[Rfam]
RNA: Mitochondrion-encoded tmRNA
RNA sequence: UAAAUGUACCCAAAGGCAGUAUUUGGUAUUUCCAUGUAUUAAAAUAAUCGGGAAUAAUAAUAGAAUUGACAUUUA
Numbered sequence: 001u002a003a004a005u006g007u008a009c010c011c012a013a014a015g016g017c018a019g020u021a022u023u024u025g026g027u028a029u030u031u032c033c034a035u036g037u038a039u040u041a042a043a044a045u046a047a048u049c050g051g052g053a054a055u056a057a058u059a060a061u062a063g064a065a066u067u068g069a070c071a072u073u074u075a
Base pairs, nucleotide, nucleotide: 001075002074003073004072005071006070010026011025012024013023014022027056028055029054030053031052032051033050